[Rfam]
Source information: A member of the RNA family "Lysine riboswitch aptamer" from Shewanella violacea, 219 nucleotides long.
RNA sequence: CUGAGAAGUAGAGGUGCAUUAAAAAUCAGUAGUGAUAGUCAGGGUGAUACCGCUUAUCUAUCAUGAAAGGGUUUGAUGCCGAAGUAGUAAUGCAUAUCACGGUUUACUACUGGGGCUGUAUCGAAUAGGUACAGCACUGCCAUAGUGUCUCUUAUCCGGAUGAUAAGAAGAUUUUAUACCUAUUAAUAAAUGGUAUUACUAUGGAGCGCUACUGAUAGG
Numbered sequence: 001c002u003g004a005g006a007a008g009u010a011g012a013g014g015u016g017c018a019u020u021a022a023a024a025a026u027c028a029g030u031a032g033u034g035a036u037a038g039u040c041a042g043g044g045u046g047a048u049a050c051c052g053c054u055u056a057u058c059u060a061u062c063a064u065g066a067a068a069g070g071g072u073u074u075g076a077u078g079c080c081g082a083a084g085u086a087g088u089a090a091u092g093c094a095u096a097u098c099a100c101g102g103u104u105u106a107c108u109a110c111u112g113g114g115g116c117u118g119u120a121u122c123g124a125a126u127a128g129g130u131a132c133a134g135c136a137c138u139g140c141c142a143u144a145g146u147g148u149c150u151c152u153u154a155u156c157c158g159g160a161u162g163a164u165a166a167g168a169a170g171a172u173u174u175u176a177u178a179c180c181u182a183u184u185a186a187u188a189a190a191u192g193g194u195a196u197u198a199c200u201a202u203g204g205a206g207c208g209c210u211a212c213u214g215a216u217a218g219g
Base pairs, nucleotide, nucleotide: 007213008212009211010210011209016079017078018077019076020075021074022073023072032064033063034062035061036060037059038058083111084110085109086108087107088106089105090104093101112138113137115135116134117133118132119131120130121129122128140204141203142202143201144200145199146198